[Rfam]
The family of this 86-nucleotide sequence from Paenibacillus sp. D9 is "c-di-GMP-I riboswitch aptamer".
RNA sequence: CAAACGAAACGACAAACCUAUUGAAAGUAGGGACUCAAAAUUAUGGACCUCAGGAAGAUAAUUUUCACGGCUGCCAAGUUACCGAA
Numbered sequence: 001c002a003a004a005c006g007a008a009a010c011g012a013c014a015a016a017c018c019u020a021u022u023g024a025a026a027g028u029a030g031g032g033a034c035u036c037a038a039a040a041u042u043a044u045g046g047a048c049c050u051c052a053g054g055a056a057g058a059u060a061a062u063u064u065u066c067a068c069g070g071c072u073g074c075c076a077a078g079u080u081a082c083c084g085a086a
Base pairs, nucleotide, nucleotide: 017031018030019029020028021027022026039080040079041078042077044076045075046074048070049069054065055064056063057062